[Rfam]
RNA sequence: GGGACGGAUGGUCGACCAGCUGGAAAGUAAUUGUUUCUAAUGUACUUCACCUGGUCCACUAGCCGUCGGU
Numbered sequence: 001g002g003g004a005c006g007g008a009u010g011g012u013c014g015a016c017c018a019g020c021u022g023g024a025a026a027g028u029a030a031u032u033g034u035u036u037c038u039a040a041u042g043u044a045c046u047u048c049a050c051c052u053g054g055u056c057c058a059c060u061a062g063c064c065g066u067c068g069g070u
Stems, first nucleotide, its partner, number of pairs: 003067005009061004014056006021049003026046004030041004